[Rfam]
RNA sequence: CCAGCUCUCUUUGCCUUUUGGCUUAGAUCAAGUGUAGUAUCUGUUCUUUUCAGUUUAAUCUCUGAAAGUGUUCUAAGGAACACAACAUUGAUUAAUCUUAUUUUUGGUCUGAGCGGCAGGACCUCUGUGCUUGCGCAUGUCCUGCUGCACAGUGUCAUCGGGCUUACACUACCCCCGAUCGACGCGAACGCAA
Numbered sequence: 001c002c003a004g005c006u007c008u009c010u011u012u013g014c015c016u017u018u019u020g021g022c023u024u025a026g027a028u029c030a031a032g033u034g035u036a037g038u039a040u041c042u043g044u045u046c047u048u049u050u051c052a053g054u055u056u057a058a059u060c061u062c063u064g065a066a067a068g069u070g071u072u073c074u075a076a077g078g079a080a081c082a083c084a085a086c087a088u089u090g091a092u093u094a095a096u097c098u099u100a101u102u103u104u105u106g107g108u109c110u111g112a113g114c115g116g117c118a119g120g121a122c123c124u125c126u127g128u129g130c131u132u133g134c135g136c137a138u139g140u141c142c143u144g145c146u147g148c149a150c151a152g153u154g155u156c157a158u159c160g161g162g163c164u165u166a167c168a169c170u171a172c173c174c175c176c177g178a179u180c181g182a183c184g185c186g187a188a189c190g191c192a193a
Base pairs, nucleotide, nucleotide: 008027009026010025013022014021015020048067049066050065051064052063053062068083069082070081071080072079073078113148114147115146116145117144118143119142120141126137127136128135129134152185153184154183155182156181158178159177160176161175162174

Rfam assigns this 193-nucleotide RNA from Aspergillus nidulans to the family "U2 spliceosomal RNA". Taxonomically the source falls in Aspergillus nidulans (Eukaryota, Opisthokonta, Eurotiomycetes, Eurotiomycetidae). The family's RNA type in Rfam is spliceosomal small nuclear RNA. About the family: U2 is a small nuclear RNA (snRNA) component of the spliceosome (involved in pre-mRNA splicing). Complementary binding between U2 snRNA (in an area lying towards the 5' end but 3' to hairpin I) and the branchpoint sequence (BPS) of the intron results the bulging out of an unpaired adenosine, on the BPS, which initiates a nucleophilic attack at the intronic 5' splice site, thus starting the first of two transesterification reactions that mediate splicing. A reference for the family is Zwieb (1997), "The uRNA database", Nucleic Acids Res.